[Rfam]
A member of the RNA family "Pseudomonas sRNA P26" from Gammaproteobacteria bacterium ESL0073, 65 nucleotides long. This small RNA (sRNA) was computationally identified in the genome of the opportunistic pathogen Pseudomonas aeruginosa and its expression verified by northern blot analysis. P26 is conserved across many Gammaproteobacteria species and appears to be consistently located between the DNA directed RNA polymerase (beta subunit) and 50S ribosomal protein L7/L12 genes.
RNA sequence: AACUUAAUGUUGGCAGCUCCAACAUUAAAAUAGAGCUGAUGGCUGGUGGCUUUUGCUACCGGCCU
Numbered sequence: 001a002a003c004u005u006a007a008u009g010u011u012g013g014c015a016g017c018u019c020c021a022a023c024a025u026u027a028a029a030a031u032a033g034a035g036c037u038g039a040u041g042g043c044u045g046g047u048g049g050c051u052u053u054u055g056c057u058a059c060c061g062g063c064c065u
Stems, first nucleotide, its partner, number of pairs: 014038005041064010
Dot-bracket structure: .............(((((...............)))))..((((((((((....)))))))))).
It is annotated as a non-coding RNA gene. Pairs were carried over by alignment from the consensus structure, which was predicted with RNAalifold.